[Rfam]
Rfam assigns this 82-nucleotide RNA to the family "skipping-rope RNA".
The sequence is in the family's curated seed alignment.
The family's consensus secondary structure is taken from published work.
RNA sequence: AUGCCCCGAGGAUAGAGAAUGUAGCGCUAUCACACCCUUAGGGUCAAAAGGAAUGCGGGACAGGCUACACCCGCCGGGGCAC
Numbered sequence: 001a002u003g004c005c006c007c008g009a010g011g012a013u014a015g016a017g018a019a020u021g022u023a024g025c026g027c028u029a030u031c032a033c034a035c036c037c038u039u040a041g042g043g044u045c046a047a048a049a050g051g052a053a054u055g056c057g058g059g060a061c062a063g064g065c066u067a068c069a070c071c072c073g074c075c076g077g078g079g080c081a082c
Stems, first nucleotide, its partner, number of pairs: 002081007011031005021068005033050001034044004055074005